[Rfam]
RNA: Glycine riboswitch aptamer
Organism: Brevibacillus fulvus
RNA sequence: AUGAUGGUAGCAGGGAGAGACCGUUUCGAUACGGCGCCGAAGGAGCAAACCCGCGACGGGUGAAUCUCUCAGGCAAAAGUACCUCUGCCGGACG
Numbered sequence: 001a002u003g004a005u006g007g008u009a010g011c012a013g014g015g016a017g018a019g020a021c022c023g024u025u026u027c028g029a030u031a032c033g034g035c036g037c038c039g040a041a042g043g044a045g046c047a048a049a050c051c052c053g054c055g056a057c058g059g060g061u062g063a064a065u066c067u068c069u070c071a072g073g074c075a076a077a078a079g080u081a082c083c084u085c086u087g088c089c090g091g092a093c094g
Stems, first nucleotide, its partner, number of pairs: 006089005012084003021034004036074003039070002043068003049061002